RNA sequence: AGGUCAUGUCUCCUCCCCUUUAUCCGUGGAGGCACUCGAUCAUGCUGUGGGUUUUAAAAGACCUUAGACGCUGGGUCGUCGAGAGUGUGAUGUGAGGGCGGGUUAAAUGCCCA
Numbered sequence: 001a002g003g004u005c006a007u008g009u010c011u012c013c014u015c016c017c018c019u020u021u022a023u024c025c026g027u028g029g030a031g032g033c034a035c036u037c038g039a040u041c042a043u044g045c046u047g048u049g050g051g052u053u054u055u056a057a058a059a060g061a062c063c064u065u066a067g068a069c070g071c072u073g074g075g076u077c078g079u080c081g082a083g084a085g086u087g088u089g090a091u092g093u094g095a096g097g098g099c100g101g102g103u104u105a106a107a108u109g110c111c112c113a
Stems, first nucleotide, its partner, number of pairs: 001019003007034007035096004039091008049064006067080004100112004
Shown here is a 113-nucleotide sequence from Pullulanibacillus camelliae, a member of the family "epsC RNA". Taxonomically the source falls in Pullulanibacillus (Bacteria, Bacillati, Bacillota, Sporolactobacillaceae).